[Rfam]
Nucleotides: 280
Base pairs, nucleotide, nucleotide: 001280002279003278004277005276006275007274008273009272012271013270014269015265016264017263018262070251071250072249073083076136077135078134079133080132081131092130093129128258149244150243151242152241153240154191155190156189157188158187159186160185195237196236197235198234204229205228211222212221213220
Number, partner (000 for none) and nucleotide at each position: 001280c002279u003278u004277a005276u006275c007274u008273a009272g010000g011000u012271u013270u014269g015265u016264g017263g018262u019000u020000g021000c022000g023000a024000g025000u026000u027000u028000a029000u030000c031000c032000a033000a034000c035000a036000g037000u038000a039000u040000u041000a042000g043000c044000g045000u046000a047000c048000u049000c050000g051000u052000u053000u054000u055000u056000a057000u058000a059000g060000g061000c062000u063000c064000u065000a066000g067000u068000c069000c070251a071250u072249g073083g074000c075000a076136g077135a078134c079133g080132a081131g082000g083073u084000c085000a086000a087000a088000a089000g090000g091000a092130u093129c094000c095000a096000c097000g098000u099000a100000a101000g102000c103000g104000u105000g106000u107000a108000u109000g110000u111000g112000c113000g114000c115000a116000u117000a118000u119000g120000c121000g122000c123000g124000a125000g126000c127000a128258u129093g130092g131081c132080u133079c134078g135077u136076c137000c138000u139000a140000g141000g142000a143000g144000u145000a146000a147000g148000u149244c150243a151242u152241a153240c154191c155190g156189c157188u158187u159186g160185u161000u162000a163000c164000a165000c166000a167000u168000a169000a170000a171000a172000g173000a174000c175000a176000u177000a178000g179000g180000g181000u182000c183000u184000u185160g186159c187158a188157g189156g190155c191154g192000a193000g194000a195237g196236a197235a198234c199000c200000a201000a202000u203000a204229g205228u206000a207000u208000g209000a210000g211222c212221g213220c214000a215000u216000a217000c218000g219000u220213g221212c222211g223000c224000c225000g226000c227000a228205g229204c230000a231000a232000c233000a234198g235197u236196u237195c238000c239000a240153g241152u242151a243150u244149g245000c246000g247000a248000g249072u250071g251070u252000g253000g254000g255000g256000u257000c258128a259000a260000a261000u262018a263017c264016c265015a266000g267000g268000u269014c270013a271012g272009c273008u274007a275006g276005g277004u278003a279002a280001g
The record is a 280-nucleotide RNA from Fannyhessea vaginae, which matches "raiA RNA" in Rfam. Rfam's curators put it in the seed alignment. NCBI's taxonomy places the organism under Bacteria, Actinomycetota, Atopobiaceae, Fannyhessea, Fannyhessea vaginae. Rfam classes the family as a riboswitch.